[Rfam]
RNA sequence: AAGGCGGUAUCUGAAACUAAGAACUGCACUUUAUCAUUCUUAUUAUGAUUAAAUCAUUAAACUGCACAGCCGGUUACGUGGAUUCUGCUCUGAGCCGAAAGGACCGAGACAGAAGG
Dot-bracket structure: ((((((((.((.........))))))).))).....................................................((((((.(..((....)).).))).)))....
Numbered sequence: 001a002a003g004g005c006g007g008u009a010u011c012u013g014a015a016a017c018u019a020a021g022a023a024c025u026g027c028a029c030u031u032u033a034u035c036a037u038u039c040u041u042a043u044u045a046u047g048a049u050u051a052a053a054u055c056a057u058u059a060a061a062c063u064g065c066a067c068a069g070c071c072g073g074u075u076a077c078g079u080g081g082a083u084u085c086u087g088c089u090c091u092g093a094g095c096c097g098a099a100a101g102g103a104c105c106g107a108g109a110c111a112g113a114a115g116g
Stems, first nucleotide, its partner, number of pairs: 001031003004027005010022002085112003088108003092104001095102002
A member of the RNA family "pan motif" from Paenibacillus lemnae, 116 nucleotides long. The family's RNA type in Rfam is cis-regulatory element. The base pairs follow the family's consensus structure, which is taken from published work.